[Rfam]
A member of the RNA family "Fluoride riboswitch aptamer (crcB RNA motif)", 65 nucleotides long.
Pairs were carried over by alignment from the consensus structure, which is taken from published work.
A reference for the family is Baker et al. (2012), "Widespread genetic switches and toxicity resistance proteins for fluoride", Science.
Rfam links the family to the GO terms response to fluoride and positive regulation of gene expression.

RNA sequence: CGAGUACUUGGUGAUGGAAUCCACCACUAUCAAAUGCCCACCGGGCUGAUGAUUCCUACUUUUCG
Numbered sequence: 001c002g003a004g005u006a007c008u009u010g011g012u013g014a015u016g017g018a019a020u021c022c023a024c025c026a027c028u029a030u031c032a033a034a035u036g037c038c039c040a041c042c043g044g045g046c047u048g049a050u051g052a053u054u055c056c057u058a059c060u061u062u063u064c065g
Stems, first nucleotide, its partner, number of pairs: 010025004016056006036046003
Dot-bracket structure: .........[[[[..((((((]]]]..........(((.....)))....)))))).........